[Rfam]
RNA sequence: UAGCGCCCGCGGUGGGCCCGGCGUGGAUGCACAGUAGGAUUUCGCGGGCAAUCCAUCCACGUACGGUCCGGUACAUUCAGGAAUUUUCCUGAAUUUAACUUCUUCU
Numbered sequence: 001u002a003g004c005g006c007c008c009g010c011g012g013u014g015g016g017c018c019c020g021g022c023g024u025g026g027a028u029g030c031a032c033a034g035u036a037g038g039a040u041u042u043c044g045c046g047g048g049c050a051a052u053c054c055a056u057c058c059a060c061g062u063a064c065g066g067u068c069c070g071g072u073a074c075a076u077u078c079a080g081g082a083a084u085u086u087u088c089c090u091g092a093a094u095u096u097a098a099c100u101u102c103u104u105c106u
Stems, first nucleotide, its partner, number of pairs: 005049007013070003017066002021062008038053004077092006
Dot-bracket structure: ....[[[[[[[.(((.((..((((((((.........((((.]]]]]]])))).))))))))..)).)))......((((((....))))))..............

Notes: Rfam assigns this 106-nucleotide sequence to the family "RT-5 RNA". It is annotated as a small RNA. The family's consensus secondary structure is taken from published work. The sequence is in the family's curated seed alignment.